Description: Rfam assigns this 68-nucleotide RNA sequence from Mus musculus to the family "mir-302 microRNA precursor family". The family has 49 seed sequences and 2,090 matches in Rfam 15.1. Its Rfam clan is "mir-290 clan". The source organism's lineage runs through Eukaryota, Teleostomi, Euarchontoglires, Mus and Mus.

[Rfam]
RNA sequence: CUUCAACUUUAACAUGGGAAUGCUUUCUGUCUCAUCGAAGAGUAAGUGCUUCCAUGUUUUAGUAGAAG
Numbered sequence: 001c002u003u004c005a006a007c008u009u010u011a012a013c014a015u016g017g018g019a020a021u022g023c024u025u026u027c028u029g030u031c032u033c034a035u036c037g038a039a040g041a042g043u044a045a046g047u048g049c050u051u052c053c054a055u056g057u058u059u060u061a062g063u064a065g066a067a068g
Stems, first nucleotide, its partner, number of pairs: 001068003006063003011058009021048005027042002
Gene Ontology terms of the family: miRNA-mediated post-transcriptional gene silencing and RISC complex. The base pairs follow the family's consensus structure, which was predicted with RNAalifold.